[Rfam]
RNA sequence: CGACUUGAAGAGCAAACCGGUUGAAAAGCCGGGACGCAAAGCCAGAAGGAGCUAAAGUCAGAUAGAAAUCUGAUCAUGCUAGCCGGUUGCAUCA
Numbered sequence: 001c002g003a004c005u006u007g008a009a010g011a012g013c014a015a016a017c018c019g020g021u022u023g024a025a026a027a028g029c030c031g032g033g034a035c036g037c038a039a040a041g042c043c044a045g046a047a048g049g050a051g052c053u054a055a056a057g058u059c060a061g062a063u064a065g066a067a068a069u070c071u072g073a074u075c076a077u078g079c080u081a082g083c084c085g086g087u088u089g090c091a092u093c094a
Stems, first nucleotide, its partner, number of pairs: 012037002017032006040088004048084002050080003057074007

The family of this 94-nucleotide sequence from Roseburia sp. CAG:50 is "c-di-GMP-I riboswitch aptamer". Taxonomically the source falls in Roseburia (Bacteria, Bacillati, Bacillota, Clostridia). About the family: GEMM was predicted in a large-scale screen for bacterial structured RNA regulatory elements.